[Rfam]
RNA: Glycine riboswitch aptamer
Organism: Actinoplanes teichomyceticus
RNA sequence: GCAACCGCUGCGGGAGAGCACCCGCCACCCCGGGGGUCGCCGAAGGAGCAACUUCUCCCUCAGAAUCUCUCAGGCCCACGUACCGCACCGGUCAG
Number, nucleotide and partner (000 for none) at each position: 001g000002c000003a000004a000005c000006c090007g089008c000009u087010g086011c085012g084013g083014g000015a000016g000017a000018g000019c000020a037021c036022c035023c034024g000025c000026c000027a000028c000029c000030c000031c000032g000033g000034g023035g022036g021037u020038c000039g075040c074041c073042g071043a070044a000045g000046g069047a068048g067049c000050a000051a000052c063053u062054u000055c000056u000057c000058c000059c000060u000061c000062a053063g052064a000065a000066u000067c048068u047069c046070u043071c042072a000073g041074g040075c039076c000077c000078a000079c000080g000081u000082a000083c013084c012085g011086c010087a009088c000089c007090g006091g000092u000093c000094a000095g000